A member of the RNA family "Small nucleolar RNA SNORD79" from Meleagris gallopavo, 82 nucleotides long. The base pairs follow the family's consensus structure, which was predicted with PFOLD. A reference for the family is Smith and Steitz (1998), "Classification of gas5 as a multi-small-nucleolar-RNA (snoRNA) host gene and a member of the 5'-terminal oligopyrimidine gene family reveals common features of snoRNA host genes", Mol Cell Biol. Gene Ontology terms of the family: nucleolus and RNA processing. snoRNA U79 or Z22 is found in intron 7 of the gas5 gene in humans and is also present in mice. The organism belongs to Meleagris, within Eukaryota. It is annotated as a C/D-box small nucleolar RNA.

[Rfam]
RNA sequence: UACUGUUCAUGAUGAUUAUUAGUUCUAAGCAAUGGGAAUCUCUCUGAAAGAGACUGAGGAGGACUCUUGAUCUGAAACAGUA
Numbered sequence: 001u002a003c004u005g006u007u008c009a010u011g012a013u014g015a016u017u018a019u020u021a022g023u024u025c026u027a028a029g030c031a032a033u034g035g036g037a038a039u040c041u042c043u044c045u046g047a048a049a050g051a052g053a054c055u056g057a058g059g060a061g062g063a064c065u066c067u068u069g070a071u072c073u074g075a076a077a078c079a080g081u082a
Stems, first nucleotide, its partner, number of pairs: 001082007